The family of this 112-nucleotide RNA sequence from Bacillus sp. FJAT-27916 is "RNA Staph. aureus E (RoxS)". It was shown to be regulated by the presence of nitric oxide (NO). In Bacillus subtilis it controls expression of genes with functions related to oxidative stress and oxidation-reduction reactions and it was renamed RoxS (for related to oxidative stress). The source organism's lineage runs through Bacteria, Bacillota, Bacilli, Caryophanales and Bacillus. Pairs were carried over by alignment from the consensus structure, which is taken from published work. A reference for the family is Geissmann et al. (2009), "A search for small noncoding RNAs in Staphylococcus aureus reveals a conserved sequence motif for regulation", Nucleic Acids Res.
RNA sequence: GUGAAGUUGAUCACUAGCAAACAUUUACCCCUUUGUUUGACCGUGAAAAAUUUCUCCCAUCCCCUUUGUUCGUAUGAAGAAGAAGACUCUGGCCGAUUACAGAGUCUUCUUC
Dot-bracket structure: ..((((((..((((...((((((..........))))))...))))..))))))...............((....).)...((((((((((........))))))))))...